[Rfam]
RNA sequence: UGCUGUUGAUGAUGAUUGUUAUUAAAACAAUGGGAAUCUCUCUGAAUAAGAAUGAAAGAUGAAUUUGUUCUGAAACAGUA
Dot-bracket structure: (((((((..................................................................)))))))

Background
Shown here is an 80-nucleotide RNA from Bagarius yarrelli, a member of the family "Small nucleolar RNA SNORD79". The base pairs follow the family's consensus structure, which was predicted with PFOLD. On this family, see Smith and Steitz, Mol Cell Biol 1998: "Classification of gas5 as a multi-small-nucleolar-RNA (snoRNA) host gene and a member of the 5'-terminal oligopyrimidine gene family reveals common features of snoRNA host genes". Taxonomically the source falls in Bagarius (Eukaryota, Teleostomi, Actinopterygii, Characiphysae). Rfam's curators write: snoRNA U79 or Z22 is found in intron 7 of the gas5 gene in humans and is also present in mice.